[Rfam]
RNA sequence: UUACAAGACGUUUUAACUAAUAUACUGUUUUGUCCCUCUCUGUCAAUGAACAAAUUGUUCUUUGUCGGAGAGGGACAAAACAGUUUAUUAGUUAAAACGUUCUGUAAC
Numbered sequence: 001u002u003a004c005a006a007g008a009c010g011u012u013u014u015a016a017c018u019a020a021u022a023u024a025c026u027g028u029u030u031u032g033u034c035c036c037u038c039u040c041u042g043u044c045a046a047u048g049a050a051c052a053a054a055u056u057g058u059u060c061u062u063u064g065u066c067g068g069a070g071a072g073g074g075a076c077a078a079a080a081c082a083g084u085u086u087a088u089u090a091g092u093u094a095a096a097a098c099g100u101u102c103u104g105u106a107a108c
Stems, first nucleotide, its partner, number of pairs: 001107005011097012024084005029069004034064001049059004
Overview:
The family of this 108-nucleotide RNA sequence from Plutella xylostella is "mir-8517 microRNA precursor family".